[Rfam]
RNA: Histone 3' UTR stem-loop
Organism: Donacobius atricapilla
RNA sequence: CCAAAGGCUCUUUUAAGAGCCACCCACGUUUCUCAAUAAAGGGCUA
Numbered sequence: 001c002c003a004a005a006g007g008c009u010c011u012u013u014u015a016a017g018a019g020c021c022a023c024c025c026a027c028g029u030u031u032c033u034c035a036a037u038a039a040a041g042g043g044c045u046a
Base pairs, nucleotide, nucleotide: 006021007020008019009018010017011016